[Rfam]
A member of the RNA family "c-di-AMP riboswitch aptamer (ydaO/yuaA leader)" from Nocardioides sp. Root1257, 173 nucleotides long.
RNA sequence: CGCUGAGUUCGGGCUCGUCGACCUGUCGGGGAGCCCGGAGCCGGGGAACCAUCGGCAGCAGGUCCGCCUGCUGCCAGGGGUGAAUCCCCGUGAAGGCGGCGGCACUCGGGCCGCGCCGGAGCGGGGUAGGGCAAAUGUCGUGCCCGAAUCCGUCAGCUCACCCGGUAGGCGUA
Numbered sequence: 001c002g003c004u005g006a007g008u009u010c011g012g013g014c015u016c017g018u019c020g021a022c023c024u025g026u027c028g029g030g031g032a033g034c035c036c037g038g039a040g041c042c043g044g045g046g047a048a049c050c051a052u053c054g055g056c057a058g059c060a061g062g063u064c065c066g067c068c069u070g071c072u073g074c075c076a077g078g079g080g081u082g083a084a085u086c087c088c089c090g091u092g093a094a095g096g097c098g099g100c101g102g103c104a105c106u107c108g109g110g111c112c113g114c115g116c117c118g119g120a121g122c123g124g125g126g127u128a129g130g131g132c133a134a135a136u137g138u139c140g141u142g143c144c145c146g147a148a149u150c151c152g153u154c155a156g157c158u159c160a161c162c163c164g165g166u167a168g169g170c171g172u173a
Base pairs, nucleotide, nucleotide: 001171002170003169004168008039009038010037011036012035013034014033015032016031040166041165042164043163044162045161050077078151079150080149086126087125088124089123090122091121129145130144131143132142